[Rfam]
RNA sequence: AUGAAGGAUGCGGAAGAGCUCUGCCCCAGGGCAGACACCGAAGGAGAAAACGGCAAAUUGUCGGGUUUGUCGUGAAGCUUUCAGGUUAAAGGACCGUAUCCGGACA
Dot-bracket structure: .....((((((((......((((........)))).(((((..(((...(((((((((......)))))))))....))))).))).......)))))))).....

The record is a 106-nucleotide RNA from Thermoclostridium caenicola, which matches "Glycine riboswitch aptamer" in Rfam.
Rfam describes the family as follows. This family represents the bacterial glycine riboswitch.
NCBI's taxonomy places the organism under Bacteria, Bacillota, Clostridia, Oscillospiraceae, Thermoclostridium.